[Rfam]
A member of the RNA family "Enterococcus sRNA 84" from Enterococcus rivorum, 86 nucleotides long. Rfam classes the family as an antisense RNA. Rfam's curators put it in the seed alignment. For this family Rfam cites "Whole-genome mapping of 5' RNA ends in bacteria by tagged sequencing: a comprehensive view in Enterococcus faecalis" (Innocenti et al., RNA, 2015).
RNA sequence: UACCAACAACAACUUUUUUAUUUUCAUAUUUACUCUUAUGAGUAAAUACUCCUUUCCCCACUCAUUCAUUUGAGUGGGGUUUUUCU
Dot-bracket structure: ............................(((((((....)))))))..........((((((((......))))))))........